[Rfam]
RNA sequence: CUGCACCAACUCUCCUGGGCUUAUCUGAAUGUCUAACUAUGAAGAUCAAAGCCCCAAUGUUGGUGCUACAUUCAUGCCGUUUCACGUGUUGCAGAAUAGCUUUCGCUUAUCAACCAGCUCUUCUGUGUCAAUUCGGCGGCUAAAUCU
Number, nucleotide and partner (000 for none) at each position: 001c000002u000003g066004c065005a064006c063007c062008a061009a060010c059011u000012c000013u000014c000015c000016u000017g054018g053019g052020c051021u050022u048023a000024u045025c044026u043027g000028a000029a000030u000031g000032u000033c000034u000035a000036a000037c000038u000039a000040u000041g000042a000043a026044g025045a024046u000047c000048a022049a000050a021051g020052c019053c018054c017055c000056a000057a000058u000059g010060u009061u008062g007063g006064u005065g004066c003067u000068a000069c000070a000071u000072u000073c000074a000075u000076g140077c139078c138079g137080u136081u135082u000083c000084a000085c000086g000087u130088g129089u000090u127091g126092c125093a124094g123095a122096a000097u000098a000099g118100c117101u116102u000103u000104c000105g000106c000107u000108u000109a000110u000111c000112a000113a000114c000115c000116a101117g100118c099119u000120c000121u000122u095123c094124u093125g092126u091127g090128u000129c088130a087131a000132u000133u000134c000135g081136g080137c079138g078139g077140c076141u000142a000143a000144a000145u000146c000147u000
A member of the RNA family "small nucleolar RNA snoR134" from Hibiscus syriacus, 147 nucleotides long. Rfam classes the family as an H/ACA-box small nucleolar RNA. Gene Ontology terms of the family: RNA processing and nucleolus. A search with the family's covariance model found it, with a score of 90 bits. A reference for the family is Chen and Wu (2009), "Mining small RNA sequencing data: a new approach to identify small nucleolar RNAs in Arabidopsis", Nucleic Acids Res. The base pairs follow the family's consensus structure, which was predicted with RNAalifold.